[Rfam]
Shown here is a 107-nucleotide sequence from Rossellomorea marisflavi, a member of the family "SAM riboswitch aptamer (S box leader)". NCBI's taxonomy places the organism under Bacteria, Bacillota, Caryophanales, Bacillaceae, Rossellomorea. Rfam links the family to the GO term regulation of gene expression.
RNA sequence: CUCUUAUUUAGAGUGGUGGAGGGAAGUGCCCGAUGAAACCCGGCAACCGUCAAUGAAAAUUGACACGGUGCCAAUUCACUCGAAGCGAAGGCUUCGACAGAUGAGGG
Numbered sequence: 001c002u003c004u005u006a007u008u009u010a011g012a013g014u015g016g017u018g019g020a021g022g023g024a025a026g027u028g029c030c031c032g033a034u035g036a037a038a039c040c041c042g043g044c045a046a047c048c049g050u051c052a053a054u055g056a057a058a059a060u061u062g063a064c065a066c067g068g069u070g071c072c073a074a075u076u077c078a079c080u081c082g083a084a085g086c087g088a089a090g091g092c093u094u095c096g097a098c099a100g101a102u103g104a105g106g107g
Stems, first nucleotide, its partner, number of pairs: 001107008013041001015040003021031003025080004042072004047068002049064004076099001081096006